[Rfam]
RNA sequence: CCCUGUAUUGAAAGUGACUACUAUGGCAUGACUUGCCAUAGUCAUUGAUAGUACAGGAACAGUGACUUUGAAAAAUGUUCCUGUGUUUGUUGGAAUACCGUUUCCUGUCAAACCCUGUAUCUUUCAAACA
Numbered sequence: 001c002c003c004u005g006u007a008u009u010g011a012a013a014g015u016g017a018c019u020a021c022u023a024u025g026g027c028a029u030g031a032c033u034u035g036c037c038a039u040a041g042u043c044a045u046u047g048a049u050a051g052u053a054c055a056g057g058a059a060c061a062g063u064g065a066c067u068u069u070g071a072a073a074a075a076u077g078u079u080c081c082u083g084u085g086u087u088u089g090u091u092g093g094a095a096u097a098c099c100g101u102u103u104c105c106u107g108u109c110a111a112a113c114c115c116u117g118u119a120u121c122u123u124u125c126a127a128a129c130a
Base pairs, nucleotide, nucleotide: 002057003056004055005054006053007052008051009050013046014045015044016043017042018041019040020039024038025037026036027035068127069126070125071124072123073122075120085113086112087111088110089109090107092105093104094103
Rfam assigns this 130-nucleotide RNA sequence from Salmo salar to the family "Small nucleolar RNA SNORA71". The source organism's lineage runs through Eukaryota, Teleostomi, Euteleostomi, Clupeocephala and Salmo. From the family's description: The members of this family belong to the H/ACA class of snoRNAs which bind a number of proteins (including dyskerin, Gar1p and Nop10p) to form snoRNP complexes. This class of snoRNAs are thought to guide the sites of modification of uridines to pseudouridines by forming direct base pairing interactions with substrate RNAs. This family includes U71 (SNORA71), ACA39 (SNORA39) and ACA60 (SNORA60). It scores 79 bits against the family's covariance model. The family has 40 seed sequences and 1,805 matches in Rfam 15.1. On this family, see Ganot et al., Genes Dev 1997: "The family of box ACA small nucleolar RNAs is defined by an evolutionarily conserved secondary structure and ubiquitous sequence elements essential for RNA accumulation".